This 79-nucleotide RNA belongs to the Rfam family "S15-Methanomicrobia ribosomal protein leader". It is annotated as a cis-regulatory leader. Its Rfam clan is "Ribosomal Protein S15 Leader clan".
RNA sequence: AGCACUGUAACAGGUGCUGGCAGAAGUAAAUCCGACGUGGCAGAUGUCACGGCCUGAAUGAAUCAGGCUCAGGGAUUAC
Numbered sequence: 001a002g003c004a005c006u007g008u009a010a011c012a013g014g015u016g017c018u019g020g021c022a023g024a025a026g027u028a029a030a031u032c033c034g035a036c037g038u039g040g041c042a043g044a045u046g047u048c049a050c051g052g053c054c055u056g057a058a059u060g061a062a063u064c065a066g067g068c069u070c071a072g073g074g075a076u077u078a079c
Base pairs, nucleotide, nucleotide: 001018002017003016004015005014006013026079027078028077029076032074033073037050038049039048040047041046051069052068053067054066055065056064057063